[Rfam]
RNA sequence: GACAUUCGAGGUGGUAAAUUUCGUACAAACCACACACCGAAGGCAGGCAAAAGCCGAGAGAUGCGGGAGAACUGUACGCCCGCCGAAUGUA
Numbered sequence: 001g002a003c004a005u006u007c008g009a010g011g012u013g014g015u016a017a018a019u020u021u022c023g024u025a026c027a028a029a030c031c032a033c034a035c036a037c038c039g040a041a042g043g044c045a046g047g048c049a050a051a052a053g054c055c056g057a058g059a060g061a062u063g064c065g066g067g068a069g070a071a072c073u074g075u076a077c078g079c080c081c082g083c084c085g086a087a088u089g090u091a
Stems, first nucleotide, its partner, number of pairs: 002090007011033005023077005035058001037047002063083005
Shown here is a 91-nucleotide RNA, a member of the family "skipping-rope RNA". The family's RNA type in Rfam is small RNA. It is one of the family's seed sequences.